[Rfam]
RNA sequence: GUGGAGGGCUGGAUGGCCGCGAGGCUCUGUUUUUCGGAAUGGGGUGUCGAGGAAAGUCCGGACUCCCUGAAGACAAGGUGCCGGGUAACGCCCGGGCCUGGCUGUUUGGGGCUUGCCCAGAACGGCUGGGACGGAAAGCGCCACAGAAAACAAACCGCUUCCGCGCCCUCCGGGACGCAGGAGCAAGGGUGAAACGGUGGGGUAAGAGCCCACCGGGGGGCUGGCAACAGCACCCGCAUGGCAAGCCCCACCUGGGAGCAAUGCCGAAUAGGGACCGCAUCAUGGGGCGCUUCACCCCUGCGGUCCGGGUUGGCAGCUAGAGUUUGCGGGCAACCGUAGACCGAGAGGAAUGGUCAUCCAGGCUGGGGUUACCCCGGCUGGACAAAAUCCGGCUUACAGGCUCUCCACGCAU
Numbered sequence: 001g002u003g004g005a006g007g008g009c010u011g012g013a014u015g016g017c018c019g020c021g022a023g024g025c026u027c028u029g030u031u032u033u034u035c036g037g038a039a040u041g042g043g044g045u046g047u048c049g050a051g052g053a054a055a056g057u058c059c060g061g062a063c064u065c066c067c068u069g070a071a072g073a074c075a076a077g078g079u080g081c082c083g084g085g086u087a088a089c090g091c092c093c094g095g096g097c098c099u100g101g102c103u104g105u106u107u108g109g110g111g112c113u114u115g116c117c118c119a120g121a122a123c124g125g126c127u128g129g130g131a132c133g134g135a136a137a138g139c140g141c142c143a144c145a146g147a148a149a150a151c152a153a154a155c156c157g158c159u160u161c162c163g164c165g166c167c168c169u170c171c172g173g174g175a176c177g178c179a180g181g182a183g184c185a186a187g188g189g190u191g192a193a194a195c196g197g198u199g200g201g202g203u204a205a206g207a208g209c210c211c212a213c214c215g216g217g218g219g220g221c222u223g224g225c226a227a228c229a230g231c232a233c234c235c236g237c238a239u240g241g242c243a244a245g246c247c248c249c250a251c252c253u254g255g256g257a258g259c260a261a262u263g264c265c266g267a268a269u270a271g272g273g274a275c276c277g278c279a280u281c282a283u284g285g286g287g288c289g290c291u292u293c294a295c296c297c298c299u300g301c302g303g304u305c306c307g308g309g310u311u312g313g314c315a316g317c318u319a320g321a322g323u324u325u326g327c328g329g330g331c332a333a334c335c336g337u338a339g340a341c342c343g344a345g346a347g348g349a350a351u352g353g354u355c356a357u358c359c360a361g362g363c364u365g366g367g368g369u370u371a372c373c374c375c376g377g378c379u380g381g382a383c384a385a386a387a388u389c390c391g392g393c394u395u396a397c398a399g400g401c402u403c404u405c406c407a408c409g410c411a412u
Base pairs, nucleotide, nucleotide: 001408002407003406004405005404006403007402008401009400010399011397012358013357014356015355016354017353018352020049021048022047024045025044026043027042028041029040030039031038054395055394056393058392059391060390061389062388063258064257065256066255071292072291074289076253077252078251079250080249081095082094083093084092085091096132097130098129099128100127101126102125103124104123105122106121107120133248134247138246139245140242141241142240155188156187157184158183159182160181161180163178164177165176196214197213198212199211200210201209215237216235217234218233220231221230222229223228262315263314264313265312272306273305274304275303276302277301284298285297286296287295322341323340324339325338326337327336328335329334
Shown here is a 412-nucleotide RNA sequence from Jannaschia sp. CCS1, a member of the family "Bacterial RNase P class A".
The family is grouped with related families in Rfam's "RNaseP clan".
It is annotated as a ribozyme.
The literature on the family includes a 1998 paper in Annu Rev Biochem by Frank and Pace, "Ribonuclease P: unity and diversity in a tRNA processing ribozyme".